[Rfam]
RNA sequence: GCCUAUGAUUAUAUUAUAUCCGAACUGCAUGAGGUGUUUUGGAUCCAAGCCCCUGUUUACAGGGAGAACCUACUUGGUGAAGGGACAUUCAUAUGACAAUGGAUUUCUAUGAGGC
Number, nucleotide and partner (000 for none) at each position: 001g115002c114003c113004u000005a000006u000007g000008a000009u000010u000011a000012u000013a000014u000015u000016a000017u000018a000019u000020c000021c000022g000023a000024a000025c000026u000027g000028c000029a000030u000031g000032a000033g000034g000035u000036g000037u000038u000039u000040u000041g000042g000043a000044u000045c000046c000047a000048a000049g000050c000051c064052c063053c062054u061055g060056u000057u000058u000059a000060c055061a054062g053063g052064g051065a000066g000067a000068a000069c000070c000071u000072a000073c000074u000075u000076g000077g000078u000079g000080a000081a000082g000083g000084g000085a000086c000087a000088u000089u000090c000091a000092u000093a000094u000095g000096a000097c000098a000099a000100u000101g000102g000103a000104u000105u000106u000107c000108u000109a000110u000111g000112a000113g003114g002115c001
Rfam assigns this 115-nucleotide sequence from Lathyrus oleraceus to the family "Small nucleolar RNA Z278". Rfam 15.1 lists 1,130 matches to the family in 214 species. On this family, see Chen et al., Nucleic Acids Res 2003: "The high diversity of snoRNAs in plants: identification and comparative study of 120 snoRNA genes from Oryza sativa". Pairs were carried over by alignment from the consensus structure, which was predicted with PFOLD. Lineage of the source: Eukaryota > Spermatophyta > Gunneridae > Fabales > Lathyrus.